[Rfam]
RNA sequence: GGGCAAUGAUGAUACAAGUAUUUAGUCAUGCACCACUCUGAAUCCGUGCUGACAAACAAACUUACUACCCAUUAUUCGUCUGAGCCC
Numbered sequence: 001g002g003g004c005a006a007u008g009a010u011g012a013u014a015c016a017a018g019u020a021u022u023u024a025g026u027c028a029u030g031c032a033c034c035a036c037u038c039u040g041a042a043u044c045c046g047u048g049c050u051g052a053c054a055a056a057c058a059a060a061c062u063u064a065c066u067a068c069c070c071a072u073u074a075u076u077c078g079u080c081u082g083a084g085c086c087c
Stems, first nucleotide, its partner, number of pairs: 001087004

Rfam assigns this 87-nucleotide sequence from Dichanthelium oligosanthes to the family "Small nucleolar RNA Z221/R21b". The match comes from Rfam's covariance-model search (75 bits). Its family is annotated with nucleolus and RNA processing in the Gene Ontology. The source organism's lineage runs through Eukaryota, Poales, Panicoideae, Paniceae and Dichanthelium. Rfam classes the family as a C/D-box small nucleolar RNA.